Source information:
A member of the RNA family "pan motif" from Desulforamulus profundi, 91 nucleotides long. The organism belongs to Desulforamulus, within Bacteria. A search with the family's covariance model found it, with a score of 52 bits. It is annotated as a cis-regulatory element.
[Rfam]
RNA sequence: CGGGUAGUAUCCUAAACGGAACUGCACCAACGGGAACUUUUUACAAGUUAAGUUGAUUUCCGCUUGGAACCGGAUGGACCGAGACGGGAGG
Numbered sequence: 001c002g003g004g005u006a007g008u009a010u011c012c013u014a015a016a017c018g019g020a021a022c023u024g025c026a027c028c029a030a031c032g033g034g035a036a037c038u039u040u041u042u043a044c045a046a047g048u049u050a051a052g053u054u055g056a057u058u059u060c061c062g063c064u065u066g067g068a069a070c071c072g073g074a075u076g077g078a079c080c081g082a083g084a085c086g087g088g089a090g091g
Stems, first nucleotide, its partner, number of pairs: 002028002004025005010020002060087003063083005070077002